[Rfam]
RNA sequence: ACACUCUUAUUUCUCUUCAGAACAAUACAUCUUUCGCCUUUUACUAAAGAUGUUCGUGGAGGGGAACAUUAUGAGUAUCAACUAAAAAUAAAUCAAAUGUUUUU
Number, nucleotide and partner (000 for none) at each position: 001a000002c000003a076004c075005u074006c073007u000008u000009a000010u066011u065012u064013c063014u062015c061016u060017u059018c058019a057020g000021a000022a000023c000024a000025a000026u000027a053028c052029a051030u050031c049032u048033u047034u046035c000036g000037c000038c000039u000040u000041u000042u000043a000044c000045u000046a034047a033048a032049g031050a030051u029052g028053u027054u000055c000056g000057u019058g018059g017060a016061g015062g014063g013064g012065a011066a010067c000068a000069u000070u000071a000072u000073g006074a005075g004076u003077a000078u000079c000080a000081a000082c000083u000084a000085a000086a000087a000088a000089u000090a000091a000092a000093u000094c000095a000096a000097a000098u000099g000100u000101u000102u000103u000104u000

Shown here is a 104-nucleotide sequence from Gymnodraco acuticeps, a member of the family "U5 spliceosomal RNA".
On this family, see Thomas et al., Nucleic Acids Res 1990: "The spliceosomal snRNAs of Caenorhabditis elegans".
The organism belongs to Gymnodraco, within Eukaryota.